This 112-nucleotide RNA from Ensete ventricosum belongs to the Rfam family "MIR390 microRNA precursor family". Taxonomically the source falls in Ensete (Eukaryota, Streptophytina, Embryophyta, Spermatophyta). The base pairs follow the family's consensus structure, which was predicted with WAR. It scores 90 bits against the family's covariance model. A reference for the family is Xie et al. (2005), "Expression of Arabidopsis MIRNA genes", Plant Physiol. Its family is annotated with miRNA-mediated post-transcriptional gene silencing and RISC complex in the Gene Ontology.

[Rfam]
RNA sequence: UGGAAGCAUCCAUAAAGCUCAGGAGGGAUAGCGCCAUUGAUGACAAUGAAAGACCUGGGAUUGCUCUUUCCAUCUACUGCGCUAUCUAUCCUGAGUUCCAUGGGCUCUUCCU
Numbered sequence: 001u002g003g004a005a006g007c008a009u010c011c012a013u014a015a016a017g018c019u020c021a022g023g024a025g026g027g028a029u030a031g032c033g034c035c036a037u038u039g040a041u042g043a044c045a046a047u048g049a050a051a052g053a054c055c056u057g058g059g060a061u062u063g064c065u066c067u068u069u070c071c072a073u074c075u076a077c078u079g080c081g082c083u084a085u086c087u088a089u090c091c092u093g094a095g096u097u098c099c100a101u102g103g104g105c106u107c108u109u110c111c112u
Stems, first nucleotide, its partner, number of pairs: 010103001016097009026087009